[Rfam]
RNA sequence: CGGAGAGACCAACGAGAACCAUGGAUGGAGGCGGGGGACCCACCGGUCCACCGAGUAUCGGACCAGGAACCGCUCGCGGCUCCUUGGGGUGAAGCCGAGAUCGUCUCCUCGGAGACGACGACGGCCGGGCGACCUCUCCAGCCCGAACCCGACAGCUGACCUCGCAGGCGCAUUGAAGAGAGGAAAU
Numbered sequence: 001c002g003g004a005g006a007g008a009c010c011a012a013c014g015a016g017a018a019c020c021a022u023g024g025a026u027g028g029a030g031g032c033g034g035g036g037g038a039c040c041c042a043c044c045g046g047u048c049c050a051c052c053g054a055g056u057a058u059c060g061g062a063c064c065a066g067g068a069a070c071c072g073c074u075c076g077c078g079g080c081u082c083c084u085u086g087g088g089g090u091g092a093a094g095c096c097g098a099g100a101u102c103g104u105c106u107c108c109u110c111g112g113a114g115a116c117g118a119c120g121a122c123g124g125c126c127g128g129g130c131g132a133c134c135u136c137u138c139c140a141g142c143c144c145g146a147a148c149c150c151g152a153c154a155g156c157u158g159a160c161c162u163c164g165c166a167g168g169c170g171c172a173u174u175g176a177a178g179a180g181a182g183g184a185a186a187u
Stems, first nucleotide, its partner, number of pairs: 001028001031165006041086002087150003095124003127144004